RNA sequence: UUGUAGAAUUUGAAGACUUCAACUUGUAUACUUGAAGUAUUUGAUAUCUUCAGCUUUUAUACUUGGCUGAAUUUAAAGACUUCAACU
Numbered sequence: 001u002u003g004u005a006g007a008a009u010u011u012g013a014a015g016a017c018u019u020c021a022a023c024u025u026g027u028a029u030a031c032u033u034g035a036a037g038u039a040u041u042u043g044a045u046a047u048c049u050u051c052a053g054c055u056u057u058u059a060u061a062c063u064u065g066g067c068u069g070a071a072u073u074u075a076a077a078g079a080c081u082u083c084a085a086c087u
Stems, first nucleotide, its partner, number of pairs: 001085003005081002009077006017069001019066003025059002028056001032053006
Overview:
Rfam assigns this 87-nucleotide RNA sequence from Solanum tuberosum to the family "MIR8024 microRNA precursor family". Pairs were carried over by alignment from the consensus structure, which was predicted with RNAalifold.